RNA sequence: UUCUUAUCAAGAGUGGUGGAGGGACUGGCCCAAUGAAACCCGGCAACCUAAUGGGAAAACCUAUAGGUGCUAAAUCCUGUAGCAAUAGCUAAGAGAUAAGAG
Dot-bracket structure: ((((((((....(.(((...(((.[.[[)))......))))((((.((((...........))..))))))...(]].]((((....))))..)))))))))